[Rfam]
A member of the RNA family "SAM (S-adenosyl methionine) riboswitch aptamer" from Arthrobacter psychrolactophilus, 117 nucleotides long. NCBI's taxonomy places the organism under Bacteria, Actinomycetota, Actinomycetes, Micrococcales, Arthrobacter. Its Rfam clan is "SAM clan". A reference for the family is Weinberg et al. (2008), "The aptamer core of SAM-IV riboswitches mimics the ligand-binding site of SAM-I riboswitches", RNA.
RNA sequence: GGUCAUGAGUGUCAGCAAAAAGCCCCGGCUUGCUGACCGGCAACCCUCCUUCCGCGGCGGGGUGCCCCGGGUGAAGACCUGGCGCCAAACCGACCGGUUUUGGUGCAAGCGCGGGCC
Numbered sequence: 001g002g003u004c005a006u007g008a009g010u011g012u013c014a015g016c017a018a019a020a021a022g023c024c025c026c027g028g029c030u031u032g033c034u035g036a037c038c039g040g041c042a043a044c045c046c047u048c049c050u051u052c053c054g055c056g057g058c059g060g061g062g063u064g065c066c067c068c069g070g071g072u073g074a075a076g077a078c079c080u081g082g083c084g085c086c087a088a089a090c091c092g093a094c095c096g097g098u099u100u101u102g103g104u105g106c107a108a109g110c111g112c113g114g115g116c117c
Stems, first nucleotide, its partner, number of pairs: 001079004009038001011037006021030002039066003044062003048057002082106007089098003